A member of the RNA family "Y RNA" from Homo sapiens, 101 nucleotides long. The family has 104 seed sequences and 26,986 matches in Rfam 15.1. Taxonomically the source falls in Homo (Eukaryota, Eumetazoa, Craniata, Vertebrata).

[Rfam]
RNA sequence: GGCUGGUCCAAGUGCAAUGGUGUUGCAACAAAUUGAUCACAACCACUUACAGAUUUAUUUGUUCUUUUUCCACUCCCACUGCUUCACUUGACUAGCCUUAA
Numbered sequence: 001g002g003c004u005g006g007u008c009c010a011a012g013u014g015c016a017a018u019g020g021u022g023u024u025g026c027a028a029c030a031a032a033u034u035g036a037u038c039a040c041a042a043c044c045a046c047u048u049a050c051a052g053a054u055u056u057a058u059u060u061g062u063u064c065u066u067u068u069u070c071c072a073c074u075c076c077c078a079c080u081g082c083u084u085c086a087c088u089u090g091a092c093u094a095g096c097c098u099u100a101a
Base pairs, nucleotide, nucleotide: 001097002096003095004094005093006092007091008090010089011088014085016080018078019077020076022075027063028062029061031059032058